[Rfam]
RNA sequence: AGUAGGAAAUCGGGAGACGCUGGCGCACCGCCAGGGCCGAAGGAGCAACCGCCCCGGGAAUCUCUCAGGCAAAGGGACCGUUUUCCUAUG
Numbered sequence: 001a002g003u004a005g006g007a008a009a010u011c012g013g014g015a016g017a018c019g020c021u022g023g024c025g026c027a028c029c030g031c032c033a034g035g036g037c038c039g040a041a042g043g044a045g046c047a048a049c050c051g052c053c054c055c056g057g058g059a060a061u062c063u064c065u066c067a068g069g070c071a072a073a074g075g076g077a078c079c080g081u082u083u084u085c086c087u088a089u090g
Stems, first nucleotide, its partner, number of pairs: 006085004011080003020034004036070003039066002043064003049057002
A member of the RNA family "Glycine riboswitch aptamer" from Paracoccus sp. J56, 90 nucleotides long. Taxonomically the source falls in Paracoccus (Bacteria, Alphaproteobacteria, Rhodobacterales, Paracoccaceae).